[Rfam]
RNA sequence: CGACGCUACGAAAGCAGCGCCGGGCUGUAUAGAAGUCAGCAGAGGCCGUAGUACUGACCUUCCAACGCCAAUGGAAGCAGGAAGGGC
Numbered sequence: 001c002g003a004c005g006c007u008a009c010g011a012a013a014g015c016a017g018c019g020c021c022g023g024g025c026u027g028u029a030u031a032g033a034a035g036u037c038a039g040c041a042g043a044g045g046c047c048g049u050a051g052u053a054c055u056g057a058c059c060u061u062c063c064a065a066c067g068c069c070a071a072u073g074g075a076a077g078c079a080g081g082a083a084g085g086g087c
Stems, first nucleotide, its partner, number of pairs: 002021001004019004009014001036043002045087003054080003061075003

Group II catalytic intron D1-D4-1: an 87-nucleotide sequence from Pirellula sp. SH-Sr6A.
From the family's description: Group II introns are found in rRNA, tRNA and mRNA of organelles in fungi, plants and protists, and also in mRNA in bacteria.